[Rfam]
Record summary: The record is a 107-nucleotide sequence from Prunus avium, which matches "MIR6274 microRNA precursor family" in Rfam. Gene Ontology terms of the family: RISC complex and miRNA-mediated post-transcriptional gene silencing. The family's consensus secondary structure was predicted with RNAalifold. The source organism's lineage runs through Eukaryota, Rosales, Amygdaloideae, Amygdaleae and Prunus.

RNA sequence: GGAUAAUACUGUUUUGCUAUCCCUAACUAAUAACACAAUAACACGUGAAAAAGUUAUCUCACAUGUCAUUGCGUUAUUAGUUAGGGAUAGCAAAAAGUGUUAUCUCU
Numbered sequence: 001g002g003a004u005a006a007u008a009c010u011g012u013u014u015u016g017c018u019a020u021c022c023c024u025a026a027c028u029a030a031u032a033a034c035a036c037a038a039u040a041a042c043a044c045g046u047g048a049a050a051a052a053g054u055u056a057u058c059u060c061a062c063a064u065g066u067c068a069u070u071g072c073g074u075u076a077u078u079a080g081u082u083a084g085g086g087a088u089a090g091c092a093a094a095a096a097g098u099g100u101u102a103u104c105u106c107u
Base pairs, nucleotide, nucleotide: 002106003105005103012095013094014093015092016091017090018089019088020087022085023084024083025082026081027080028079029078030077031076032075033074034073036071037070038069039068041066042065043064045062046061047060048059050057